[Rfam]
RNA sequence: AUAAUGAUACUCCUUGAGAUAGCCUGCCCGCAGGGGAGGCGGCUAAGAUGCCGGUGA
Number, nucleotide and partner (000 for none) at each position: 001a000002u000003a000004a000005u000006g000007a000008u000009a000010c000011u000012c054013c022014u021015u000016g000017a000018g000019a000020u000021a014022g013023c039024c038025u037026g000027c035028c034029c033030g000031c000032a000033g029034g028035g027036g000037a025038g024039g023040c053041g052042g051043c000044u000045a000046a000047g000048a000049u000050g000051c042052c041053g040054g012055u000056g000057a000